[Rfam]
RNA: Histone 3' UTR stem-loop
RNA sequence: ACAACGGCUCUUUUCAGAGCCACCACUUGUUCAAGUUGAUCUCUA
Numbered sequence: 001a002c003a004a005c006g007g008c009u010c011u012u013u014u015c016a017g018a019g020c021c022a023c024c025a026c027u028u029g030u031u032c033a034a035g036u037u038g039a040u041c042u043c044u045a
Base pairs, nucleotide, nucleotide: 006021007020008019009018010017011016